This 143-nucleotide sequence from Oncorhynchus tshawytscha belongs to the Rfam family "Small nucleolar RNA SNORA29". Its family is annotated with nucleolus and RNA processing in the Gene Ontology. Rfam's curators write: ACA29 is a member of the H/ACA class of snoRNA that guide the sites of modification of uridines to pseudouridines. It is annotated as an H/ACA-box small nucleolar RNA. A search with the family's covariance model found it, with a score of 56 bits.

RNA sequence: AUUCCUGUUUUAGUCCCGCCCAUCUGCUUCCUCUACAGAUGGGUGGCUAUGCUAACAGGAUAGAGAAACCGUCCGUCAUUGUCUGAAGGGGUUGAGCAGCCUUCACUCCUCCACCUCUAUAUGAAAUUACGGCACAUUUUUCA
Number, nucleotide and partner (000 for none) at each position: 001a000002u000003u000004c059005c058006u057007g056008u000009u000010u000011u000012a000013g000014u000015c000016c046017c045018g044019c043020c000021c000022a000023u000024c000025u000026g000027c000028u000029u000030c000031c000032u000033c000034u000035a000036c000037a000038g000039a000040u000041g000042g000043g019044u018045g017046g016047c000048u000049a000050u000051g000052c000053u000054a000055a000056c007057a006058g005059g004060a000061u000062a000063g000064a000065g000066a000067a000068a000069c000070c000071g000072u000073c000074c000075g130076u129077c000078a127079u000080u000081g000082u000083c000084u000085g000086a000087a000088g000089g000090g000091g000092u000093u000094g117095a116096g115097c000098a000099g000100c000101c000102u000103u000104c000105a000106c000107u000108c000109c000110u000111c000112c000113a000114c000115c096116u095117c094118u000119a000120u000121a000122u000123g000124a000125a000126a000127u078128u000129a076130c075131g000132g000133c000134a000135c000136a000137u000138u000139u000140u000141u000142c000143a000

The family's consensus secondary structure was predicted with PFOLD.